Rfam assigns this 326-nucleotide RNA sequence from Ceuthmochares aereus to the family "7SK RNA".
[Rfam]
RNA sequence: GGAUGUAAGGGCAAUCUGGCUGUGACAUCUGACACCCCAUUGAUUGCCAGGGUUGAUUCAGCUGAUCUGGUUUGCUAGGCAGGUGUUUUCUUCCUCCUUCACGGCUCCUUGUGUGUCCCUCACGAAGCUGCAUGCUCAGGCAAAGAGGACAACCUUCCCCAAUAGAGGCGAACAGUUCAUCCGUCCAAGGGCCUACAGUAGCUGCGCUCCCCUGCUAGAACCUCUAAACAAGCUCAAGGUCCAUUUGUAGAACAUAGGGUACUCAAACUUGCAUGUCUGCAGACACAUCCAAGUGAGGCACUGCAUGGGGUAGUUUGUCACUAUUU
Numbered sequence: 001g002g003a004u005g006u007a008a009g010g011g012c013a014a015u016c017u018g019g020c021u022g023u024g025a026c027a028u029c030u031g032a033c034a035c036c037c038c039a040u041u042g043a044u045u046g047c048c049a050g051g052g053u054u055g056a057u058u059c060a061g062c063u064g065a066u067c068u069g070g071u072u073u074g075c076u077a078g079g080c081a082g083g084u085g086u087u088u089u090c091u092u093c094c095u096c097c098u099u100c101a102c103g104g105c106u107c108c109u110u111g112u113g114u115g116u117c118c119c120u121c122a123c124g125a126a127g128c129u130g131c132a133u134g135c136u137c138a139g140g141c142a143a144a145g146a147g148g149a150c151a152a153c154c155u156u157c158c159c160c161a162a163u164a165g166a167g168g169c170g171a172a173c174a175g176u177u178c179a180u181c182c183g184u185c186c187a188a189g190g191g192c193c194u195a196c197a198g199u200a201g202c203u204g205c206g207c208u209c210c211c212c213u214g215c216u217a218g219a220a221c222c223u224c225u226a227a228a229c230a231a232g233c234u235c236a237a238g239g240u241c242c243a244u245u246u247g248u249a250g251a252a253c254a255u256a257g258g259g260u261a262c263u264c265a266a267a268c269u270u271g272c273a274u275g276u277c278u279g280c281a282g283a284c285a286c287a288u289c290c291a292a293g294u295g296a297g298g299c300a301c302u303g304c305a306u307g308g309g310g311u312a313g314u315u316u317g318u319c320a321c322u323a324u325u326u
Stems, first nucleotide, its partner, number of pairs: 001108003005102002008099004014092001018090002024087008033078001035074001037070003042067004046062002116171002118168004124137002127135002147158003201268001203266001208261001210259005222250002225247001230246003291326003295321001297319003300314005
About this RNA: From the family's description: 7SK was discovered as an abundant small nuclear RNA in the mid-70s but a possible function has only recently been suggested. Two independent studies have found that 7SK RNA binds the CDK9/cyclin T complex (known as elongation factor P-TEFb). P-TEFb activates transcription by phosphorylating the C-terminal domain of RNA polymerase II. This process is negatively regulated by the 7SK RNP. The secondary structure of 7SK RNA shown here was proposed by Wasserman and Steitz on the basis of chemical modification and enzymatic cleavage experiments. This family contains a number of annotated pseudogenes and 7SK derived repeats.